RNA sequence: AGCCCCCGAGUUGGAAACAUACAGAUGACUUUCUCGCCUUUUACUAGAAAGACCCGUGUUGUCGGCUCACAUGGGGGCGUUCAAUUUCUUCCUCAGACCUAUCUGGUCCA
Numbered sequence: 001a002g003c004c005c006c007c008g009a010g011u012u013g014g015a016a017a018c019a020u021a022c023a024g025a026u027g028a029c030u031u032u033c034u035c036g037c038c039u040u041u042u043a044c045u046a047g048a049a050a051g052a053c054c055c056g057u058g059u060u061g062u063c064g065g066c067u068c069a070c071a072u073g074g075g076g077g078c079g080u081u082c083a084a085u086u087u088c089u090u091c092c093u094c095a096g097a098c099c100u101a102u103c104u105g106g107u108c109c110a
Stems, first nucleotide, its partner, number of pairs: 003077004009067006016060004027053001029051006096108004
Dot-bracket structure: ..((((..((((((.((((.......(.((((((...........)))))).)...)))).))))))......))))..................((((.....))))..